[Rfam]
RNA sequence: UCAGUAAAUUGCCUUAUCGCUUUAAAUUUAUUUUAAAGAGGAAAGUCCGGACACCGUAGUGUAAUCAUAGUGGUUAACAGCCAUCCGCCGAGAGGUGAGGAAAAGUGCAACAGAAAGAAUGUACAGGUCAUGCUGUAGUGAAACCAGGUAAACUCUAUGAGGUGCAAUACCAUGUAUACUAACGUUUGAGCGUACACGCGCGAUUGUUAGAGGGUAGGUAGCUAAAGCGUGUUGGUAACAGCAAGCUCAGAUAAAUGAUAGGGGCUUCUUAGGAAGUACAAAAUCCGGCUUAUAGAUUUACUUACUUA
Numbered sequence: 001u002c003a004g005u006a007a008a009u010u011g012c013c014u015u016a017u018c019g020c021u022u023u024a025a026a027u028u029u030a031u032u033u034u035a036a037a038g039a040g041g042a043a044a045g046u047c048c049g050g051a052c053a054c055c056g057u058a059g060u061g062u063a064a065u066c067a068u069a070g071u072g073g074u075u076a077a078c079a080g081c082c083a084u085c086c087g088c089c090g091a092g093a094g095g096u097g098a099g100g101a102a103a104a105g106u107g108c109a110a111c112a113g114a115a116a117g118a119a120u121g122u123a124c125a126g127g128u129c130a131u132g133c134u135g136u137a138g139u140g141a142a143a144c145c146a147g148g149u150a151a152a153c154u155c156u157a158u159g160a161g162g163u164g165c166a167a168u169a170c171c172a173u174g175u176a177u178a179c180u181a182a183c184g185u186u187u188g189a190g191c192g193u194a195c196a197c198g199c200g201c202g203a204u205u206g207u208u209a210g211a212g213g214g215u216a217g218g219u220a221g222c223u224a225a226a227g228c229g230u231g232u233u234g235g236u237a238a239c240a241g242c243a244a245g246c247u248c249a250g251a252u253a254a255a256u257g258a259u260a261g262g263g264g265c266u267u268c269u270u271a272g273g274a275a276g277u278a279c280a281a282a283a284u285c286c287g288g289c290u291u292a293u294a295g296a297u298u299u300a301c302u303u304a305c306u307u308a
Base pairs, nucleotide, nucleotide: 001304003302004301005300006299007298008297009296010295011293012263013262014261015260016259017258018257020038021037022036023035024034025033026032043291044290045289047288048287049286050285051284052164053163054162055161060198061197062196065160066159067158068157069156070084071083072082073081074080085099086097087096088095089094100155101154105153106152107149108148168220169219170218171217179210180209181208182207183206189204191202192201193200227246228245230243231242232241233240234239
About this RNA: This 308-nucleotide sequence from Olleya namhaensis belongs to the Rfam family "Bacterial RNase P class A". Pairs were carried over by alignment from the consensus structure, which is taken from published work. Rfam describes the family as follows. Ribonuclease P (RNase P) is a ubiquitous endoribonuclease, found in archaea, bacteria and eukarya as well as chloroplasts and mitochondria. The organism belongs to Olleya, within Bacteria.